[Rfam]
RNA: S15-Flavobacteria ribosomal protein leader
RNA sequence: UAUAUUUGCCAACUAAUUACGAACAACGUAAUAAAUCGCAUAAAAAUUAUUUAAAUAAUAUUGGAAUG
Numbered sequence: 001u002a003u004a005u006u007u008g009c010c011a012a013c014u015a016a017u018u019a020c021g022a023a024c025a026a027c028g029u030a031a032u033a034a035a036u037c038g039c040a041u042a043a044a045a046a047u048u049a050u051u052u053a054a055a056u057a058a059u060a061u062u063g064g065a066a067u068g
Base pairs, nucleotide, nucleotide: 014034016032017031018030019029